[Rfam]
The record is a 116-nucleotide RNA sequence from Miscanthus lutarioriparius, which matches "mir-393 microRNA precursor family" in Rfam. On this family, see Kruszka et al., J Plant Physiol 2012: "Role of microRNAs and other sRNAs of plants in their changing environments". The family has 27 seed sequences and 1,052 matches in Rfam 15.1. The match comes from Rfam's covariance-model search (81 bits).
RNA sequence: GGAGGAAGCAUCCAAAGGGAUCGCAUUGAUCCAUCAUUCCUUCCAUUCUUUCAUGGCUGGUCGUCGUCUACAAAGGACUUCUCGACGGAUCAUGCGAUCCUUUUGGAGGCUUCCCC
Numbered sequence: 001g002g003a004g005g006a007a008g009c010a011u012c013c014a015a016a017g018g019g020a021u022c023g024c025a026u027u028g029a030u031c032c033a034u035c036a037u038u039c040c041u042u043c044c045a046u047u048c049u050u051u052c053a054u055g056g057c058u059g060g061u062c063g064u065c066g067u068c069u070a071c072a073a074a075g076g077a078c079u080u081c082u083c084g085a086c087g088g089a090u091c092a093u094g095c096g097a098u099c100c101u102u103u104u105g106g107a108g109g110c111u112u113c114c115c116c
Base pairs, nucleotide, nucleotide: 002116004114005113006112008110009109011107012106013105014104015103016102017101018100019099020098021097023095024094025093026092028091029090030089031088032087